[Rfam]
Rfam assigns this 47-nucleotide RNA sequence from Pirellula sp. SH-Sr6A to the family "Acido-Lenti-1 RNA". The match comes from Rfam's covariance-model search (53 bits). The family's consensus secondary structure is taken from published work. It is annotated as a small RNA. The family has 87 seed sequences and 2,607 matches in Rfam 15.1.
RNA sequence: CCCAGCACUGAAGUGCUGGGCUAUUGUCUGCCGUCCCUAUCGGGACU
Numbered sequence: 001c002c003c004a005g006c007a008c009u010g011a012a013g014u015g016c017u018g019g020g021c022u023a024u025u026g027u028c029u030g031c032c033g034u035c036c037c038u039a040u041c042g043g044g045a046c047u
Stems, first nucleotide, its partner, number of pairs: 001020008033046005